CyVA-1 RNA: a 77-nucleotide RNA sequence.

Nucleotides: 077
Stems, first nucleotide, its partner, number of pairs: 001077006009032004037069008
Number, partner (000 for none) and nucleotide at each position: 001077g002076c003075a004074c005073c006072g007000g008000c009032u010031g011030g012029g013000a014000g015000u016000u017000a018000u019000a020000c021000c022000g023000c024000a025000g026000u027000g028000a029012c030011c031010c032009a033000u034000a035000g036000c037069u038068u039067u040066a041065c042064a043063u044062c045000g046000g047000a048000g049000g050000a051000g052000a053000g054000c055000g056000a057000c058000g059000u060000c061000a062044g063043a064042u065041g066040u067039a068038g069037a070000g071000a072006c073005g074004g075003u076002g077001c

The base pairs follow the family's consensus structure, which is taken from published work. It is annotated as a small RNA.